[Rfam]
RNA sequence: AGCUGAAGAUGAUGAUAAGAAUGCUGGGUGAUGAUCAAUUUCAAAUGAUCAAAACAUCUCCUUGCUGCGUUCUUUCUGAUUCACAU
Numbered sequence: 001a002g003c004u005g006a007a008g009a010u011g012a013u014g015a016u017a018a019g020a021a022u023g024c025u026g027g028g029u030g031a032u033g034a035u036c037a038a039u040u041u042c043a044a045a046u047g048a049u050c051a052a053a054a055c056a057u058c059u060c061c062u063u064g065c066u067g068c069g070u071u072c073u074u075u076c077u078g079a080u081u082c083a084c085a086u
Base pairs, nucleotide, nucleotide: 004083005082006081007080
Dot-bracket structure: ...((((........................................................................))))...